[Rfam]
RNA sequence: AAACACAGCCAACUGCUACGUAAGUAGAGGAAAAUCCGCUCUAGCACAAUCUGCGAUGAUUGUAGUGUUCAUGCUAGAUCUAAUAAAUCUAGGCAGAGUGAUGAUCUGAUGACUAGUGCAACAGAGACGAGCUUAUUUAGUUAAGGUGCAACGAUGUAAACUCCAUGAGUUAGAAACCCAAAUUUUGGUAGGGGAACUAAACAAAGGGAAUUGAACUAAUGUUUAGAAAUGUAUUAUUACAUUUAGAUAAAUAGUUGGCGCUCAUUUUGAGUACAGAAAGCGGUUUAUCGUG
Dot-bracket structure: ...(((((((((((.((((....))))....[[[.[[[[[(((((((((((......)))))).....(((((((((((.......))))))(((((.(...).)))).)((...(((((...........((((......)))).........)))..))))))))))))))...(((...........)))...(((((((................)))))))((((((......))))))........))))))).((((...)))).......]]]]]]]].).)))
RNA: Bacterial RNase P class B
Organism: Metamycoplasma cloacale